[Rfam]
RNA: mir-2060 microRNA precursor family
RNA sequence: AUAUGUGUGGAUGGUGUUCAGCACCAAGGACAGGCAUGUUUAUCUGUGUGUAGACAGUGUUCAGCACCAAGGACAGGUAUGUCAU
Numbered sequence: 001a002u003a004u005g006u007g008u009g010g011a012u013g014g015u016g017u018u019c020a021g022c023a024c025c026a027a028g029g030a031c032a033g034g035c036a037u038g039u040u041u042a043u044c045u046g047u048g049u050g051u052a053g054a055c056a057g058u059g060u061u062c063a064g065c066a067c068c069a070a071g072g073a074c075a076g077g078u079a080u081g082u083c084a085u
Stems, first nucleotide, its partner, number of pairs: 002075001004073001012069007020061005028049001030047005036041001